About this RNA: A member of the RNA family "TPP riboswitch aptamer (THI element)" from Humidesulfovibrio mexicanus, 112 nucleotides long.

[Rfam]
RNA sequence: AUACAACCAUACGGGGGUCCGGGGAACCGGGCUGAGAGGGUCUCUGACACCGGGGCCGACCGUGGAACCUGAUACGGGUCAUGCCGUUGGAGGGAAUGGAACAGGCUGGACU
Numbered sequence: 001a002u003a004c005a006a007c008c009a010u011a012c013g014g015g016g017g018u019c020c021g022g023g024g025a026a027c028c029g030g031g032c033u034g035a036g037a038g039g040g041u042c043u044c045u046g047a048c049a050c051c052g053g054g055g056c057c058g059a060c061c062g063u064g065g066a067a068c069c070u071g072a073u074a075c076g077g078g079u080c081a082u083g084c085c086g087u088u089g090g091a092g093g094g095a096a097u098g099g100a101a102c103a104g105g106c107u108g109g110a111c112u
Base pairs, nucleotide, nucleotide: 007099008098009097010096011063012062013061014060016057017032018031019030020029021028039056041054042053043052068093069092070091074087075086076085077084